The record is a 120-nucleotide RNA from Metabacillus indicus, which matches "PyrR binding site" in Rfam. The source organism's lineage runs through Bacteria, Bacillota, Bacilli, Bacillaceae and Metabacillus.
RNA sequence: ACACCUUUUAACGAAAAGUCCAGAGAGGCUUACAAGGGUGGACGGGCACGGACAAAGCAACCUUUUGGUUUUGUCCUGCCUUCUCACACCCUGAAACCGGAUUUCAGGGUGUUUUUUUGC
Numbered sequence: 001a002c003a004c005c006u007u008u009u010a011a012c013g014a015a016a017a018g019u020c021c022a023g024a025g026a027g028g029c030u031u032a033c034a035a036g037g038g039u040g041g042a043c044g045g046g047c048a049c050g051g052a053c054a055a056a057g058c059a060a061c062c063u064u065u066u067g068g069u070u071u072u073g074u075c076c077u078g079c080c081u082u083c084u085c086a087c088a089c090c091c092u093g094a095a096a097c098c099g100g101a102u103u104u105c106a107g108g109g110u111g112u113u114u115u116u117u118u119g120c
Base pairs, nucleotide, nucleotide: 003039004038005037006036007035008034016031017030018029019028020027045080046079047078048077050075051074054071055070056069058067059066060065086112087111088110089109090108091107092106093105094104095103096102